Overview
Pseudomonas sRNA 6: a 124-nucleotide RNA sequence from Pseudomonas knackmussii. From the family's description: Positively regulates (post-transcriptionally), without Hfq, the expression of PagL, an enzyme responsible for deacylation of lipid A. This reduces the pro-inflammatory property of lipid A. Furthermore, similarly to Salmonella, Sr006 regulation of PagL expression was suggested to aid in polymyxin B resistance. For this family Rfam cites "The single-nucleotide resolution transcriptome of Pseudomonas aeruginosa grown in body temperature" (Wurtzel et al., PLoS Pathog, 2012). Rfam links the family to the GO terms response to antibiotic, positive regulation of translation, ncRNA-mediated and nucleic acid binding.
RNA sequence: AGUCGCUGCAGCAACGGUGGGCUGUACAACUCCCAUCGUCUGGCACCCGGCACACCCGCCGCUUGCCAACUCUCCCCCCGCGCAUACCUGGCUGCAGCGACUGACCCUUUCCUCCAGGGCGCAU
Numbered sequence: 001a002g003u004c005g006c007u008g009c010a011g012c013a014a015c016g017g018u019g020g021g022c023u024g025u026a027c028a029a030c031u032c033c034c035a036u037c038g039u040c041u042g043g044c045a046c047c048c049g050g051c052a053c054a055c056c057c058g059c060c061g062c063u064u065g066c067c068a069a070c071u072c073u074c075c076c077c078c079c080g081c082g083c084a085u086a087c088c089u090g091g092c093u094g095c096a097g098c099g100a101c102u103g104a105c106c107c108u109u110u111c112c113u114c115c116a117g118g119g120c121g122c123a124u
Base pairs, nucleotide, nucleotide: 003021004020005018006017007016008015031121032119033118034117041069043066044065045064048061049060050059051058079099080098081097082095083094084093